[Rfam]
Notes:
This 300-nucleotide sequence from Rynchops niger belongs to the Rfam family "7SK RNA". 7SK was discovered as an abundant small nuclear RNA in the mid-70s but a possible function has only recently been suggested. A search with the family's covariance model found it, with a score of 176 bits. The family is grouped with related families in Rfam's "7SK clan".
RNA sequence: GAAUGUGAGGGUGAUCUGGCUGUGACGUAUGUCACCCUACUGAUCGCCAGGGUUGAUUCAGAUGAUCUGGCUGGCUAAGCGGGUGUCCCCUUCCCCCUCACUGCUCCAUGUGCGUCCUUCACGAAGCUGCGUGCUCAAAGAGGACGACCUUCCCUGAUAGAGACGUACUAUUUAGCAGUCAACGGUAUACAGUAGCUGUGCUUCCCUGAUAGAACUUCUUUCCUGUGAGGGUGGCAGAGCACUGGAACAGGCUGCCCAGAGAGGUGGUGGAGUCUCCAACUCUGGAGACAUUCCAAACCC
Number, nucleotide and partner (000 for none) at each position: 001g107002a000003a105004u000005g101006u100007g099008a098009g097010g096011g095012u000013g093014a092015u000016c000017u000018g090019g089020c000021u000022g000023u000024g087025a086026c085027g084028u083029a000030u081031g080032u079033c000034a000035c074036c073037c070038u069039a068040c000041u000042g067043a066044u065045c064046g000047c061048c000049a000050g000051g000052g000053u000054u000055g000056a000057u000058u000059c000060a000061g047062a000063u000064g045065a044066u043067c042068u039069g038070g037071c000072u000073g036074g035075c000076u000077a000078a000079g032080c031081g030082g000083g028084u027085g026086u025087c024088c000089c019090c018091u000092u014093c013094c000095c011096c010097c009098u008099c007100a006101c005102u000103g000104c000105u003106c000107c001108a000109u000110g000111u000112g000113c000114g000115u000116c165117c000118u162119u161120c160121a000122c000123g000124a000125a000126g134127c133128u000129g000130c000131g000132u000133g127134c126135u157136c156137a155138a000139a000140g000141a000142g153143g152144a151145c000146g000147a000148c000149c000150u000151u144152c143153c142154c000155u137156g136157a135158u000159a000160g120161a119162g118163a000164c000165g116166u000167a000168c000169u000170a000171u000172u000173u000174a000175g000176c000177a000178g000179u000180c000181a000182a000183c000184g000185g000186u000187a000188u000189a000190c000191a000192g000193u000194a000195g240196c239197u238198g000199u000200g000201c234202u233203u000204c231205c230206c229207u228208g000209a226210u225211a224212g223213a000214a000215c000216u000217u000218c000219u000220u000221u000222c000223c212224u211225g210226u209227g000228a207229g206230g205231g204232u000233g202234g201235c000236a000237g000238a197239g196240c195241a000242c000243u000244g000245g000246a000247a000248c000249a000250g000251g000252c000253u000254g000255c000256c000257c000258a000259g000260a000261g000262a000263g000264g300265u000266g298267g000268u295269g294270g293271a292272g291273u288274c287275u286276c285277c284278a000279a000280c000281u000282c000283u000284g277285g276286a275287g274288a273289c000290a000291u272292u271293c270294c269295a268296a000297a000298c266299c000300c264